Shown here is an 80-nucleotide RNA sequence from Flavonifractor sp. An135, a member of the family "Glycine riboswitch aptamer".

RNA sequence: CUCUGAAAAGUCCAUGCGCAAGCAUGGCACCGAAGGUGCAACCCCCUGCACGGGGGGAAACUCUCAGGUUCAUUACAGAG
Numbered sequence: 001c002u003c004u005g006a007a008a009a010g011u012c013c014a015u016g017c018g019c020a021a022g023c024a025u026g027g028c029a030c031c032g033a034a035g036g037u038g039c040a041a042c043c044c045c046c047u048g049c050a051c052g053g054g055g056g057g058a059a060a061c062u063c064u065c066a067g068g069u070u071c072a073u074u075a076c077a078g079a080g
Stems, first nucleotide, its partner, number of pairs: 001080005012027004029069003032065002036063001038061001042056004